The record is a 122-nucleotide RNA from Novosphingobium silvae, which matches "TPP riboswitch aptamer (THI element)" in Rfam.

RNA sequence: CUUCAACCCACGGGGUGUCCUGGCGCUGUCAGGGCUGAGAGGCGGAUCGGGCAUUGCCCAGUCUGCAAACCCGCGAACCUGAUCCGGUUCAUGCCGGCGGAGGAAUAGGGACUAUGUGCGGG
Numbered sequence: 001c002u003u004c005a006a007c008c009c010a011c012g013g014g015g016u017g018u019c020c021u022g023g024c025g026c027u028g029u030c031a032g033g034g035c036u037g038a039g040a041g042g043c044g045g046a047u048c049g050g051g052c053a054u055u056g057c058c059c060a061g062u063c064u065g066c067a068a069a070c071c072c073g074c075g076a077a078c079c080u081g082a083u084c085c086g087g088u089u090c091a092u093g094c095c096g097g098c099g100g101a102g103g104a105a106u107a108g109g110g111a112c113u114a115u116g117u118g119c120g121g122g
Stems, first nucleotide, its partner, number of pairs: 007110003011073004016067001017035007042066005078103003084097004